[Rfam]
RNA sequence: CUGCAGUGAUGAUCCGUGUUUCGGACCUGGCAUGGCUCCUUGCCCCCUUGCGGGGUGGCGCUCUGGCCAGGGAAUGACAUGAAUCUAUCUUCUCUCUGAGCAG
Numbered sequence: 001c002u003g004c005a006g007u008g009a010u011g012a013u014c015c016g017u018g019u020u021u022c023g024g025a026c027c028u029g030g031c032a033u034g035g036c037u038c039c040u041u042g043c044c045c046c047c048u049u050g051c052g053g054g055g056u057g058g059c060g061c062u063c064u065g066g067c068c069a070g071g072g073a074a075u076g077a078c079a080u081g082a083a084u085c086u087a088u089c090u091u092c093u094c095u096c097u098g099a100g101c102a103g
Stems, first nucleotide, its partner, number of pairs: 003101002035061002038058001